RNA sequence: AGGGGGAGGUCGAAUCCUGGGCUGUGUCCAGGCACCUUGUGCUCCCGGGCCUGCGCUGUUGGAUUCGCGCUCCCGCCCCGCAGCCCCCU
Dot-bracket structure: ((((((..((.(....(.(((.(((((((.(((.(...(.(((....)))).).)))...)))..)))).))).).)..))..))))))
Record summary
The family of this 89-nucleotide sequence from Vulpes vulpes is "mir-8799 microRNA precursor family". The base pairs follow the family's consensus structure, which was predicted with RNAalifold. A search with the family's covariance model found it, with a score of 76 bits. Its family is annotated with miRNA-mediated post-transcriptional gene silencing and RISC complex in the Gene Ontology.